[Rfam]
RNA sequence: CUGGAGGAUCAAGGAGGCUGAGUCUGAUGAAGCAAGACUUUGUUGAUACACUCCUCCUAGACAAAAGGGUGGGGAGAGCAGCCCGUACUGGAGAAAGCCACAGGGCUCACUGUGCUACCCAACAUUU
Numbered sequence: 001c002u003g004g005a006g007g008a009u010c011a012a013g014g015a016g017g018c019u020g021a022g023u024c025u026g027a028u029g030a031a032g033c034a035a036g037a038c039u040u041u042g043u044u045g046a047u048a049c050a051c052u053c054c055u056c057c058u059a060g061a062c063a064a065a066a067g068g069g070u071g072g073g074g075a076g077a078g079c080a081g082c083c084c085g086u087a088c089u090g091g092a093g094a095a096a097g098c099c100a101c102a103g104g105g106c107u108c109a110c111u112g113u114g115c116u117a118c119c120c121a122a123c124a125u126u127u
Stems, first nucleotide, its partner, number of pairs: 001060002003057006016044003020040006067120004077111002080107005089100003
Small Cajal body specific RNA 4: a 127-nucleotide RNA sequence. Rfam links the family to the GO terms nucleolus, RNA processing and Cajal body. scaRNAs are a specific class of small nuclear RNAs which localise to the Cajal bodies and guide the modification of RNA polymerase II transcribed spliceosomal RNAs U1, U2, U4, U5 and U12. ACA26 belongs to the H/ACA box class of guide RNAs as it has the predicted hairpin-hinge-hairpin-tail structure, conserved H/ACA-box motifs and is found associated with GAR1. The family is grouped with related families in Rfam's "SCARNA4 clan". Rfam classes the family as a small Cajal body RNA.